[Rfam]
RNA sequence: GCUUAAGACAACAGUCUCAGGAUGGAAAAUGCUUUUGACUUAUGUAACCGUGAUCAAAUCUCGCAGCCAAAACUAAGUAAAAAGUAUUUUUCAUCUUAGAGAAUGUUGUUUUGAAC
Numbered sequence: 001g002c003u004u005a006a007g008a009c010a011a012c013a014g015u016c017u018c019a020g021g022a023u024g025g026a027a028a029a030u031g032c033u034u035u036u037g038a039c040u041u042a043u044g045u046a047a048c049c050g051u052g053a054u055c056a057a058a059u060c061u062c063g064c065a066g067c068c069a070a071a072a073c074u075a076a077g078u079a080a081a082a083a084g085u086a087u088u089u090u091u092c093a094u095c096u097u098a099g100a101g102a103a104u105g106u107u108g109u110u111u112u113g114a115a116c
Stems, first nucleotide, its partner, number of pairs: 003114011015102004019097018038078005043071001045069001048066001050064004
Rfam assigns this 116-nucleotide RNA from Brassica rapa to the family "MIR9408 microRNA precursor family". Rfam 15.1 lists 6 matches to the family in 5 species. Rfam links the family to the GO terms RISC complex and miRNA-mediated post-transcriptional gene silencing.